[Rfam]
RNA sequence: GGAGGUGUCCGCGUCCUGGUGGGCGCCGCGGUCUUCAAAACCGACGAGGCCGAGCAGCUCGGCCUGGCGGGUUCGAUUCCCGUUCACCUCC
Dot-bracket structure: (((((((...((((((....))))))..((((.......))))...(((((.........)))))..((((.......))))..)))))))